[Rfam]
RNA sequence: AAUGGUUUAAGGGAGCUUCCUUCAGUCCACCCAUGGACGGGUAAAGGGUUUGGAUUAGCUGCCGACUCAUUCAUUCAAACACAGUAGAAGGGGAGUGAAUUCUACUACUAUGGAUGUGUGAAUGAUGCGGGAGAUAAAAUUCAUCCUUUUCUGUUCUGUGCUUGGACUGAAGGGAGCUCCCUUCCAUCAUCAC
Numbered sequence: 001a002a003u004g005g006u007u008u009a010a011g012g013g014a015g016c017u018u019c020c021u022u023c024a025g026u027c028c029a030c031c032c033a034u035g036g037a038c039g040g041g042u043a044a045a046g047g048g049u050u051u052g053g054a055u056u057a058g059c060u061g062c063c064g065a066c067u068c069a070u071u072c073a074u075u076c077a078a079a080c081a082c083a084g085u086a087g088a089a090g091g092g093g094a095g096u097g098a099a100u101u102c103u104a105c106u107a108c109u110a111u112g113g114a115u116g117u118g119u120g121a122a123u124g125a126u127g128c129g130g131g132a133g134a135u136a137a138a139a140u141u142c143a144u145c146c147u148u149u150u151c152u153g154u155u156c157u158g159u160g161c162u163u164g165g166a167c168u169g170a171a172g173g174g175a176g177c178u179c180c181c182u183u184c185c186a187u188c189a190u191c192a193c
Stems, first nucleotide, its partner, number of pairs: 013179008023169007036156001059133002062130003068124004076116001
Rfam assigns this 193-nucleotide RNA sequence from Morella rubra to the family "MIR159 microRNA precursor family". The source organism's lineage runs through Eukaryota, Euphyllophyta, Mesangiospermae, Myricaceae and Morella. Its family is annotated with miRNA-mediated post-transcriptional gene silencing and RISC complex in the Gene Ontology. Pairs were carried over by alignment from the consensus structure, which was predicted with WAR. The literature on the family includes a 2004 paper in Mol Cell by Jones-Rhoades and Bartel, "Computational identification of plant microRNAs and their targets, including a stress-induced miRNA". A search with the family's covariance model found it, with a score of 148 bits.